[Rfam]
Notes
The family of this 91-nucleotide RNA from Asparagus officinalis is "mir-156 microRNA precursor family". About the family: This family represents the plant microRNA (miRNA) precursor mir-156. NCBI's taxonomy places the organism under Eukaryota, Embryophyta, Petrosaviidae, Asparagaceae, Asparagus. The literature on the family includes a 2002 paper in Genes Dev by Reinhart et al., "MicroRNAs in plants". The family's consensus secondary structure was predicted with PFOLD.
RNA sequence: UUGACAGAAGAGAGUGAGCACCCAUGGUGAUUUCCUGCAUAAAAUGAGGUUCAUGCUUGAAGCUAUGUGUGCUCACUGCUCUAUCUGUCAG
Numbered sequence: 001u002u003g004a005c006a007g008a009a010g011a012g013a014g015u016g017a018g019c020a021c022c023c024a025u026g027g028u029g030a031u032u033u034c035c036u037g038c039a040u041a042a043a044a045u046g047a048g049g050u051u052c053a054u055g056c057u058u059g060a061a062g063c064u065a066u067g068u069g070u071g072c073u074c075a076c077u078g079c080u081c082u083a084u085c086u087g088u089c090a091g
Stems, first nucleotide, its partner, number of pairs: 001091008010081003013077009023067003